[Rfam]
RNA sequence: AGCCUAAAGCGUUCGUAGCCGGUUUUGUAAAUCUUUAGAUAAAGCCUGAAGCUUAACUCCAGAAAGUCUGAAGAGACUGCAAGACUUGAGAUCGGGUGAGGUUAAACGUACUUUCAGGGUAGGGGUAAAAUCCUGUAAUCCCGGAAGGACGACCAGUGGCGAAAGCGUUUAACUAGAACGAAUCUGACGGUAAGGAACGAAGGCUAGGGUAGCAAACCGGAUUAGAUACCCGGGUAGUCCUAGCUGUAAACAUUGCCCAUUUGAUGUUGCUUUUCCGUUGAGGGAAGGCAGUGUCGGAGCGAAGGUGUUAAAUGGGCCGCUUGGGAAGUAUGGUCGCAAGACUGAAACUUAAAGGAAU
Numbered sequence: 001a002g003c004c005u006a007a008a009g010c011g012u013u014c015g016u017a018g019c020c021g022g023u024u025u026u027g028u029a030a031a032u033c034u035u036u037a038g039a040u041a042a043a044g045c046c047u048g049a050a051g052c053u054u055a056a057c058u059c060c061a062g063a064a065a066g067u068c069u070g071a072a073g074a075g076a077c078u079g080c081a082a083g084a085c086u087u088g089a090g091a092u093c094g095g096g097u098g099a100g101g102u103u104a105a106a107c108g109u110a111c112u113u114u115c116a117g118g119g120u121a122g123g124g125g126u127a128a129a130a131u132c133c134u135g136u137a138a139u140c141c142c143g144g145a146a147g148g149a150c151g152a153c154c155a156g157u158g159g160c161g162a163a164a165g166c167g168u169u170u171a172a173c174u175a176g177a178a179c180g181a182a183u184c185u186g187a188c189g190g191u192a193a194g195g196a197a198c199g200a201a202g203g204c205u206a207g208g209g210u211a212g213c214a215a216a217c218c219g220g221a222u223u224a225g226a227u228a229c230c231c232g233g234g235u236a237g238u239c240c241u242a243g244c245u246g247u248a249a250a251c252a253u254u255g256c257c258c259a260u261u262u263g264a265u266g267u268u269g270c271u272u273u274u275c276c277g278u279u280g281a282g283g284g285a286a287g288g289c290a291g292u293g294u295c296g297g298a299g300c301g302a303a304g305g306u307g308u309u310a311a312a313u314g315g316g317c318c319g320c321u322u323g324g325g326a327a328g329u330a331u332g333g334u335c336g337c338a339a340g341a342c343u344g345a346a347a348c349u350u351a352a353a354g355g356a357a358u
Base pairs, nucleotide, nucleotide: 001321002320003319009318011198012197013196014195016192018191019190020189022085023084024083025082026081027080028079030078032074033073034072035071036070037069038068039067040066046062047061048060050058051057089185090184091183092181093180094179097176100174101173102172103171104170105169106168107151108150111147112146113145114144115143117141118140122133123132124131159166160165203244204243205242206241207240208239212238213237217233218232219231220230255317256316257315258314259313260312263295264294265293266292267291268290269289270288271287272286273285274284275283276282299306300305323350324349325348332343333342334341335340

Annotation: The family of this 358-nucleotide part of an RNA from Ferroplasma sp. Type II is "Archaeal small subunit ribosomal RNA". Taxonomically the source falls in Ferroplasma (Archaea, Thermoplasmata, Thermoplasmatales, Ferroplasmaceae). Rfam's curators put it in the seed alignment.